[Rfam]
Source information: A member of the RNA family "Lysine riboswitch aptamer" from Lactovum miscens, 164 nucleotides long. Rfam links the family to the GO term lysine biosynthetic process.
RNA sequence: UCAGCGCAUAGAGGUAGCAAUGUAAAUGAGUAAGUUGAUGAGGAGGCAUUCGAAGAUUCAGCUGAAAGGUAACCAUUGCCGAACGAGGACAAAGGCAUUUGUCAGUCGUGGGGAUGCGGAAAAUAUCUGUAUCACUCGAGCUUCGGCUUGGCGCUAGAUGAUAU
Numbered sequence: 001u002c003a004g005c006g007c008a009u010a011g012a013g014g015u016a017g018c019a020a021u022g023u024a025a026a027u028g029a030g031u032a033a034g035u036u037g038a039u040g041a042g043g044a045g046g047c048a049u050u051c052g053a054a055g056a057u058u059c060a061g062c063u064g065a066a067a068g069g070u071a072a073c074c075a076u077u078g079c080c081g082a083a084c085g086a087g088g089a090c091a092a093a094g095g096c097a098u099u100u101g102u103c104a105g106u107c108g109u110g111g112g113g114a115u116g117c118g119g120a121a122a123a124u125a126u127c128u129g130u131a132u133c134a135c136u137c138g139a140g141c142u143u144c145g146g147c148u149u150g151g152c153g154c155u156a157g158a159u160g161a162u163a164u
Base pairs, nucleotide, nucleotide: 006159009156010155011154017079018078019077020076021075022074023072025070033063034062035061036060037059038058040057083109084108085107086106088103089102090101091100092099093098110136111135113133114132115131116130117129118128119127120126
The base pairs follow the family's consensus structure, which is taken from published work.